[Rfam]
RNA: CRISPR RNA direct repeat element
Organism: Kiloniellaceae bacterium
RNA sequence: GUUUUCCGAGGCACACAUGCCUCGGCCUCAUUGAAGC
Numbered sequence: 001g002u003u004u005u006c007c008g009a010g011g012c013a014c015a016c017a018u019g020c021c022u023c024g025g026c027c028u029c030a031u032u033g034a035a036g037c
Base pairs, nucleotide, nucleotide: 006025007024008023009022010021011020012019